[Rfam]
RNA sequence: GUAAUAUAAGAUACGGUCUCUUAGCUUUUAACUAAAAAAGCUAAGAGACGUCUCUUAUAUCUCUUAUUUUAAAGACGUCUCUUAGCUUUUUUUAGUUAAAAGUUAAGAGACCGUAUUUAAUAUUAU
Numbered sequence: 001g002u003a004a005u006a007u008a009a010g011a012u013a014c015g016g017u018c019u020c021u022u023a024g025c026u027u028u029u030a031a032c033u034a035a036a037a038a039a040g041c042u043a044a045g046a047g048a049c050g051u052c053u054c055u056u057a058u059a060u061c062u063c064u065u066a067u068u069u070u071a072a073a074g075a076c077g078u079c080u081c082u083u084a085g086c087u088u089u090u091u092u093u094a095g096u097u098a099a100a101a102g103u104u105a106a107g108a109g110a111c112c113g114u115a116u117u118u119a120a121u122a123u124u125a126u
Stems, first nucleotide, its partner, number of pairs: 001126007009118031041085007
Rfam assigns this 126-nucleotide RNA sequence from Brassica oleracea to the family "MIR9563 microRNA precursor family". Rfam links the family to the GO terms miRNA-mediated post-transcriptional gene silencing and RISC complex.